[Rfam]
RNA sequence: ACACGCCCGCCGGGAGAGUCUGGAAUUCCAGCGCCGAAGGAGCAACCGCCCCGGUCCCUCUCAGGCAAAUGGACCGGUGGGACGUG
Numbered sequence: 001a002c003a004c005g006c007c008c009g010c011c012g013g014g015a016g017a018g019u020c021u022g023g024a025a026u027u028c029c030a031g032c033g034c035c036g037a038a039g040g041a042g043c044a045a046c047c048g049c050c051c052c053g054g055u056c057c058c059u060c061u062c063a064g065g066c067a068a069a070u071g072g073a074c075c076g077g078u079g080g081g082a083c084g085u086g
Stems, first nucleotide, its partner, number of pairs: 006081008020031004033066003036062002040060003046054002
The record is an 86-nucleotide RNA sequence from Cognatishimia activa, which matches "Glycine riboswitch aptamer" in Rfam. The family has 44 seed sequences and 9,425 matches in Rfam 15.1.